[Rfam]
A member of the RNA family "RNA anti-toxin A" from Liquorilactobacillus capillatus, 91 nucleotides long. The family has 16 seed sequences and 190 matches in Rfam 15.1. A reference for the family is Fozo et al. (2010), "Abundance of type I toxin-antitoxin systems in bacteria: searches for new candidates and discovery of novel families", Nucleic Acids Res. NCBI's taxonomy places the organism under Bacteria, Bacillati, Bacillota, Lactobacillales, Liquorilactobacillus capillatus.

Nucleotides: 091
Base pairs, nucleotide, nucleotide: 025038026037028035054068055067056066057065058064059063
Number, partner (000 for none) and nucleotide at each position: 001000u002000a003000a004000u005000g006000u007000g008000g009000a010000u011000a012000a013000g014000a015000a016000a017000a018000a019000g020000g021000a022000a023000g024000c025038c026037c027000c028035g029000c030000g031000u032000g033000a034000a035028c036000a037026g038025g039000g040000c041000u042000u043000c044000c045000c046000c047000g048000u049000g050000u051000a052000g053000a054068g055067c056066c057065g058064u059063u060000u061000a062000a063059g064058a065057c066056g067055g068054u069000g070000a071000c072000a073000a074000u075000a076000c077000u078000a079000u080000g081000a082000u083000u084000a085000u086000u087000a088000a089000a090000u091000a
The match comes from Rfam's covariance-model search (81 bits).